Record summary:
This 83-nucleotide sequence from Oryctolagus cuniculus belongs to the Rfam family "Small nucleolar RNA SNORD86". Taxonomically the source falls in Oryctolagus (Eukaryota, Metazoa, Mammalia, Eutheria). Rfam's curators write: U86 belongs to the C/D family of snoRNAs. It is the human orthologue of Xenopus laevis U86 and has no identified RNA target. A search with the family's covariance model found it, with a score of 46 bits.
Nucleotides: 083
Stems, first nucleotide, its partner, number of pairs: 001083006010074003018071001022064002024060002027057001029055004038047003
Number, partner (000 for none) and nucleotide at each position: 001083a002082g003081u004080u005079a006078u007000a008000a009000a010074a011073g012072c013000a014000a015000u016000a017000a018071a019000a020000u021000c022064c023063u024060c025059c026000c027057u028000g029055a030054c031053c032052u033000g034000u035000g036000c037000a038047g039046g040045c041000c042000u043000c044000u045040g046039c047038u048000a049000c050000a051000g052032g053031g054030g055029u056000g057027a058000u059025g060024g061000c062000c063023g064022g065000u066000c067000c068000u069000g070000g071018u072012g073011u074010u075000u076000a077000g078006g079005u080004g081003a082002u083001u